A member of the RNA family "FMN riboswitch aptamer (RFN element)" from Acidovorax sp. CF316, 196 nucleotides long. Rfam's curators write: The RFN element is a highly conserved domain that is found frequently in the 5'-untranslated regions of prokaryotic mRNAs that encode for flavin mononucleotide (FMN) biosynthesis and transport proteins. The organism belongs to Acidovorax, within Bacteria. Pairs were carried over by alignment from the consensus structure, which is taken from published work.

RNA sequence: CAGCGUUCUCAGGGCGGGGUGCAAUUCCCCACCGGCGGUAUCUGUGCAGUCUUGGGCCAUCCAGGGCAGUGCAGGAGCCCGCGAGCGCCUGCAGCAACUGGCUGGUGUCUUCGGAUGCAUGCCAGGAGCGGCGGGGUCAGCAGAUCUGGUGCGAUGCCAGAGCCGACGGUCACAGUCCGGAUGAAAGAGAUCGCGA
Numbered sequence: 001c002a003g004c005g006u007u008c009u010c011a012g013g014g015c016g017g018g019g020u021g022c023a024a025u026u027c028c029c030c031a032c033c034g035g036c037g038g039u040a041u042c043u044g045u046g047c048a049g050u051c052u053u054g055g056g057c058c059a060u061c062c063a064g065g066g067c068a069g070u071g072c073a074g075g076a077g078c079c080c081g082c083g084a085g086c087g088c089c090u091g092c093a094g095c096a097a098c099u100g101g102c103u104g105g106u107g108u109c110u111u112c113g114g115a116u117g118c119a120u121g122c123c124a125g126g127a128g129c130g131g132c133g134g135g136g137u138c139a140g141c142a143g144a145u146c147u148g149g150u151g152c153g154a155u156g157c158c159a160g161a162g163c164c165g166a167c168g169g170u171c172a173c174a175g176u177c178c179g180g181a182u183g184a185a186a187g188a189g190a191u192c193g194c195g196a
Stems, first nucleotide, its partner, number of pairs: 003194003007190004017029003031176002033165002035082004085141002145161005167179003